[Rfam]
RNA: rmf RNA
RNA sequence: UUCGAUAGAAAUCUACCUAGGCCGUCGCCGCAAGGGCGAGGGCACAGGAGGUUCGCGACGCCGGCAGCGAACACCGAUGGCAGAUACUUUCUGCCUGACCUCGCCACGAGGUCUAAGGGACAUAACAGUCAAC
Numbered sequence: 001u002u003c004g005a006u007a008g009a010a011a012u013c014u015a016c017c018u019a020g021g022c023c024g025u026c027g028c029c030g031c032a033a034g035g036g037c038g039a040g041g042g043c044a045c046a047g048g049a050g051g052u053u054c055g056c057g058a059c060g061c062c063g064g065c066a067g068c069g070a071a072c073a074c075c076g077a078u079g080g081c082a083g084a085u086a087c088u089u090u091c092u093g094c095c096u097g098a099c100c101u102c103g104c105c106a107c108g109a110g111g112u113c114u115a116a117g118g119g120a121c122a123u124a125a126c127a128g129u130c131a132a133c
Stems, first nucleotide, its partner, number of pairs: 021043003025039005051072006079095006097113006